[Rfam]
RNA sequence: AAAUGUCUUCAGGGCAGGGUGUGAUUCCCGACCGGCGGUGACACUUAUAUGAUGAGUGAAGUCCGCGAGCGCAAGCUGACGUGGUGAGAUUCCACGACCGACAGUAUAGUCUGGAUGGGAGAAGACAAAG
Numbered sequence: 001a002a003a004u005g006u007c008u009u010c011a012g013g014g015c016a017g018g019g020u021g022u023g024a025u026u027c028c029c030g031a032c033c034g035g036c037g038g039u040g041a042c043a044c045u046u047a048u049a050u051g052a053u054g055a056g057u058g059a060a061g062u063c064c065g066c067g068a069g070c071g072c073a074a075g076c077u078g079a080c081g082u083g084g085u086g087a088g089a090u091u092c093c094a095c096g097a098c099c100g101a102c103a104g105u106a107u108a109g110u111c112u113g114g115a116u117g118g119g120a121g122a123a124g125a126c127a128a129a130g
Stems, first nucleotide, its partner, number of pairs: 004127007017029003031110002033100002035066004061098002069076002080096005102113003

Notes
A member of the RNA family "FMN riboswitch aptamer (RFN element)" from Streptococcus hyointestinalis, 130 nucleotides long. The family has 146 seed sequences and 6,230 matches in Rfam 15.1. The RFN element is a highly conserved domain that is found frequently in the 5'-untranslated regions of prokaryotic mRNAs that encode for flavin mononucleotide (FMN) biosynthesis and transport proteins. This element is a metabolite-dependent riboswitch that directly binds FMN in the absence of proteins. In Bacillus subtilis, the riboswitch most likely controls gene expression by causing premature transcription termination within the 5' untranslated region of the ribDEAHT operon and precluding access to the ribosome-binding site of ypaA mRNA.The FMN riboswitch structure, reported in present an FMN-bound six-stem junction, adopts a butterfly-like scaffold, stapled together by opposingly directed but nearly identically folded peripheral domains. Pairs were carried over by alignment from the consensus structure, which is taken from published work. A search with the family's covariance model found it, with a score of 119 bits.